[Rfam]
RNA sequence: ACCCGAGGGCCAUCGUCGGACGCCCCCGCCUGCCCAAUCGGGCUGCUCCGAAACAACACCCUCGCAGA
Numbered sequence: 001a002c003c004c005g006a007g008g009g010c011c012a013u014c015g016u017c018g019g020a021c022g023c024c025c026c027c028g029c030c031u032g033c034c035c036a037a038u039c040g041g042g043c044u045g046c047u048c049c050g051a052a053a054c055a056a057c058a059c060c061c062u063c064g065c066a067g068a
Stems, first nucleotide, its partner, number of pairs: 004064006016051004022044001024042003
Rfam assigns this 68-nucleotide RNA from Trypanosoma cruzi to the family "Trypanosomatid snoRNA TB8Cs4H2". Rfam classes the family as an H/ACA-box small nucleolar RNA. Rfam links the family to the GO terms RNA processing and nucleolus.